RNA sequence: UGGAAGUGAUGAAAUAGAGAUAAUUGGAUGUCUCUUUGAGUGGAAUGUGUGUGAUAAAUGGAAUUUAAACCAAGUGGGGUGGGAUGUGGGGAAUGUAUGUGUGUGUGUGCGCAUGUAUAGCAGAGGCUUCAAACGGGGGCACUGAUAAUGCAGUGCUGAUUCCGGAGUGCAUCUGAGGCAUGUUGUUAAGUUCUAGGGUGCCACAUCACAACAUUGCCGAUGAUUAAAGCCCAAAACAAGCCCACCAAGACAAGCCUAAGCAUCCUAAAUCUCUAACAGGUUCAUUAAUGACAGUGAUCCUGUGAUCUGAUCUGA
Numbered sequence: 001u002g003g004a005a006g007u008g009a010u011g012a013a014a015u016a017g018a019g020a021u022a023a024u025u026g027g028a029u030g031u032c033u034c035u036u037u038g039a040g041u042g043g044a045a046u047g048u049g050u051g052u053g054a055u056a057a058a059u060g061g062a063a064u065u066u067a068a069a070c071c072a073a074g075u076g077g078g079g080u081g082g083g084a085u086g087u088g089g090g091g092a093a094u095g096u097a098u099g100u101g102u103g104u105g106u107g108u109g110c111g112c113a114u115g116u117a118u119a120g121c122a123g124a125g126g127c128u129u130c131a132a133a134c135g136g137g138g139g140c141a142c143u144g145a146u147a148a149u150g151c152a153g154u155g156c157u158g159a160u161u162c163c164g165g166a167g168u169g170c171a172u173c174u175g176a177g178g179c180a181u182g183u184u185g186u187u188a189a190g191u192u193c194u195a196g197g198g199u200g201c202c203a204c205a206u207c208a209c210a211a212c213a214u215u216g217c218c219g220a221u222g223a224u225u226a227a228a229g230c231c232c233a234a235a236a237c238a239a240g241c242c243c244a245c246c247a248a249g250a251c252a253a254g255c256c257u258a259a260g261c262a263u264c265c266u267a268a269a270u271c272u273c274u275a276a277c278a279g280g281u282u283c284a285u286u287a288a289u290g291a292c293a294g295u296g297a298u299c300c301u302g303u304g305a306u307c308u309g310a311u312c313u314g315a
Stems, first nucleotide, its partner, number of pairs: 001314004181213006188206001190201002193198001

Rfam assigns this 315-nucleotide sequence from Rissa tridactyla to the family "Small Cajal body-specific RNA 7". The family has 18 seed sequences and 570 matches in Rfam 15.1. By type it is a small Cajal body RNA. Gene Ontology terms of the family: nucleolus and RNA processing. A reference for the family is Darzacq et al. (2002), "Cajal body-specific small nuclear RNAs: a novel class of 2'-O-methylation and pseudouridylation guide RNAs", EMBO J. Pairs were carried over by alignment from the consensus structure.